[Rfam]
RNA sequence: CGCUUCCUUGCUGGAGAGAGACCGUCCGGGCACUGACCUCGGGCGGUCCACCGAAGGAGCAACCCGCAGUCUGCCGCGUGCCCGCGCGGCCGGCCCGGCGAAUCUCUCAGGUAAAGCGGACAGCAGGGGCCGC
Numbered sequence: 001c002g003c004u005u006c007c008u009u010g011c012u013g014g015a016g017a018g019a020g021a022c023c024g025u026c027c028g029g030g031c032a033c034u035g036a037c038c039u040c041g042g043g044c045g046g047u048c049c050a051c052c053g054a055a056g057g058a059g060c061a062a063c064c065c066g067c068a069g070u071c072u073g074c075c076g077c078g079u080g081c082c083c084g085c086g087c088g089g090c091c092g093g094c095c096c097g098g099c100g101a102a103u104c105u106c107u108c109a110g111g112u113a114a115a116g117c118g119g120a121c122a123g124c125a126g127g128g129g130c131c132g133c
Stems, first nucleotide, its partner, number of pairs: 006128008020048011050112003053108002057106003064098003